[Rfam]
RNA sequence: AGGCAACUAGAUCUAUACCCCUAAACUCCCUAGCUUGAGGCUGGUGCUCCAUGAGCGCCAGCCGCUUUUU
Numbered sequence: 001a002g003g004c005a006a007c008u009a010g011a012u013c014u015a016u017a018c019c020c021c022u023a024a025a026c027u028c029c030c031u032a033g034c035u036u037g038a039g040g041c042u043g044g045u046g047c048u049c050c051a052u053g054a055g056c057g058c059c060a061g062c063c064g065c066u067u068u069u070u
Stems, first nucleotide, its partner, number of pairs: 005035001007033003039063010